[Rfam]
RNA sequence: AUUAAAAAUGUCGAAUUGACUCGUAUAACGUCAGGGAUAUGGCCUGAAAGUAUCUACCCAAAAACCAUAAAUUUUUGGACUACGAGGAACGAAUGAGGAGAA
Numbered sequence: 001a002u003u004a005a006a007a008a009u010g011u012c013g014a015a016u017u018g019a020c021u022c023g024u025a026u027a028a029c030g031u032c033a034g035g036g037a038u039a040u041g042g043c044c045u046g047a048a049a050g051u052a053u054c055u056a057c058c059c060a061a062a063a064a065c066c067a068u069a070a071a072u073u074u075u076u077g078g079a080c081u082a083c084g085a086g087g088a089a090c091g092a093a094u095g096a097g098g099a100g101a102a
Stems, first nucleotide, its partner, number of pairs: 020086006031047005058078007
RNA: Purine riboswitch aptamer
Organism: Paenibacillus sp. GP183